Description:
The family of this 67-nucleotide sequence from Scleropages formosus is "mir-34 microRNA precursor family". Taxonomically the source falls in Scleropages (Eukaryota, Opisthokonta, Actinopteri, Osteoglossocephalai). The base pairs follow the family's consensus structure, which was predicted with RNAalifold. From the family's description: Human mir-34a was discovered computationally and later experimentally verified. The mature sequence is excised from the 5' arm of the hairpin. The family is grouped with related families in Rfam's "mir-34 clan". The match comes from Rfam's covariance-model search (56 bits). On this family, see Lim et al., Science 2003: "Vertebrate microRNA genes".
RNA sequence: UGUCACCAGGCAGUGUAGUUAGCUGAUUGCAGUGUUCAGUAAUCACUAACUGCACAGCCAGGUGAAG
Numbered sequence: 001u002g003u004c005a006c007c008a009g010g011c012a013g014u015g016u017a018g019u020u021a022g023c024u025g026a027u028u029g030c031a032g033u034g035u036u037c038a039g040u041a042a043u044c045a046c047u048a049a050c051u052g053c054a055c056a057g058c059c060a061g062g063u064g065a066a067g
Base pairs, nucleotide, nucleotide: 003065004064005063006062009059010058013055014054015053016052017051018050019049020048021047022046024045025044026043027042028041029040030039